This 328-nucleotide RNA from Izhakiella capsodis belongs to the Rfam family "RNase E 5' UTR element". It is annotated as a cis-regulatory element. About the family: This family represents a conserved element found in the 5' UTR of RNase E mRNA. RNase E is a key regulatory enzyme in the pathway of mRNA degradation in E. coli that is able to auto-regulate the degradation of its own mRNA in response to changes in RNase E activity. This rne 5' UTR element acts as a sensor of cellular RNase E concentration enabling tight regulation of RNase E concentration and synthesis. The family's consensus secondary structure is taken from published work.
RNA sequence: UUUCCUGCAAACUUUGCGAAAACAAGAAAAGCGUAUGAAAAAUUUUGCCGGAUAGCACAUACACGCAGCAAUGGCGUAAGACGUUUUGUGAAAUCAGGCAGUUAGCGGGCUGCGGGUUGCAGCCUGGACGAUAGUCGGGAUUGGUUCACUUGCUGCUCUGCAGUAGCGGUACCCCCUGUAAGCGCUGUUAUCCCAUAUGAAAAACAGGCUGCCGAGAGUUUGCGUCCCUUUAGCUGACGACAACCGUGAGGUUGACGACCAUGCGAUAAGACACGGGGCCAUCGGUUAUUUACGUCCAGCGUCACCAUGCCCGUAGCUCUGUCACUAA
Numbered sequence: 001u002u003u004c005c006u007g008c009a010a011a012c013u014u015u016g017c018g019a020a021a022a023c024a025a026g027a028a029a030a031g032c033g034u035a036u037g038a039a040a041a042a043u044u045u046u047g048c049c050g051g052a053u054a055g056c057a058c059a060u061a062c063a064c065g066c067a068g069c070a071a072u073g074g075c076g077u078a079a080g081a082c083g084u085u086u087u088g089u090g091a092a093a094u095c096a097g098g099c100a101g102u103u104a105g106c107g108g109g110c111u112g113c114g115g116g117u118u119g120c121a122g123c124c125u126g127g128a129c130g131a132u133a134g135u136c137g138g139g140a141u142u143g144g145u146u147c148a149c150u151u152g153c154u155g156c157u158c159u160g161c162a163g164u165a166g167c168g169g170u171a172c173c174c175c176c177u178g179u180a181a182g183c184g185c186u187g188u189u190a191u192c193c194c195a196u197a198u199g200a201a202a203a204a205c206a207g208g209c210u211g212c213c214g215a216g217a218g219u220u221u222g223c224g225u226c227c228c229u230u231u232a233g234c235u236g237a238c239g240a241c242a243a244c245c246g247u248g249a250g251g252u253u254g255a256c257g258a259c260c261a262u263g264c265g266a267u268a269a270g271a272c273a274c275g276g277g278g279c280c281a282u283c284g285g286u287u288a289u290u291u292a293c294g295u296c297c298a299g300c301g302u303c304a305c306c307a308u309g310c311c312c313g314u315a316g317c318u319c320u321g322u323c324a325c326u327a328a
Stems, first nucleotide, its partner, number of pairs: 003035001005033001007032001013026004045101005051095002056090004063084003068075002107319011125298006137175003141171001146166001148164003181210003185207004191201001193199001211286005224279005238257002241254005